[Rfam]
RNA: Small nucleolar RNA SNORD19
Organism: Calypte anna
RNA sequence: GAGAAAUGAGGAUACAAACUUUGUCUUACUGUUGUAGUGAAGACUUCAGAUCCAACUCUGAUCUCAUGCUUAAG
Number, nucleotide and partner (000 for none) at each position: 001g065002a064003g063004a062005a000006a000007u000008g000009a000010g000011g000012a000013u000014a000015c000016a000017a000018a000019c000020u000021u000022u000023g000024u000025c000026u000027u000028a000029c000030u000031g000032u000033u000034g000035u000036a000037g000038u000039g000040a000041a000042g000043a000044c000045u000046u000047c000048a000049g000050a000051u000052c000053c000054a000055a000056c000057u000058c000059u000060g000061a000062u004063c003064u002065c001066a000067u000068g000069c000070u000071u000072a000073a000074g000